[Rfam]
RNA sequence: AGGUCUGGCGCACCAGCGGAUCGGCGAAGUUCGACAGCUGGAAAGGAUCGAAAUAGCCGCCGGGAUUGGCCGUCAUCCAGGAAUAGAUGCGACUGGAGCCGAGCCACUGUAGAAGCAGGUAGCAGGCCUCGGGGUGCUUGCUCUGCGAGGACACCGAGGCCGAGAGGUUGAGCCAUAGCACCGAGCGCCGGACAAGCUGGCCGUCGACCUCGCGGCCGGGCGGCAGCAUGGAGCC
Numbered sequence: 001a002g003g004u005c006u007g008g009c010g011c012a013c014c015a016g017c018g019g020a021u022c023g024g025c026g027a028a029g030u031u032c033g034a035c036a037g038c039u040g041g042a043a044a045g046g047a048u049c050g051a052a053a054u055a056g057c058c059g060c061c062g063g064g065a066u067u068g069g070c071c072g073u074c075a076u077c078c079a080g081g082a083a084u085a086g087a088u089g090c091g092a093c094u095g096g097a098g099c100c101g102a103g104c105c106a107c108u109g110u111a112g113a114a115g116c117a118g119g120u121a122g123c124a125g126g127c128c129u130c131g132g133g134g135u136g137c138u139u140g141c142u143c144u145g146c147g148a149g150g151a152c153a154c155c156g157a158g159g160c161c162g163a164g165a166g167g168u169u170g171a172g173c174c175a176u177a178g179c180a181c182c183g184a185g186c187g188c189c190g191g192a193c194a195a196g197c198u199g200g201c202c203g204u205c206g207a208c209c210u211c212g213c214g215g216c217c218g219g220g221c222g223g224c225a226g227c228a229u230g231g232a233g234c235c
Base pairs, nucleotide, nucleotide: 003217004027005026007025009023010022012021013019014018030158031157032156033155039147040146042144050143055138056137057136060133061132063130064128066126067089068088070086073081074080093125094124095123099118101116105112159216160215161214162213167208168207169206170205171204178197179196182190183189219235220234221233
RNA: Ruegeria cis90 sRNA
Organism: Rhizobium subbaraonis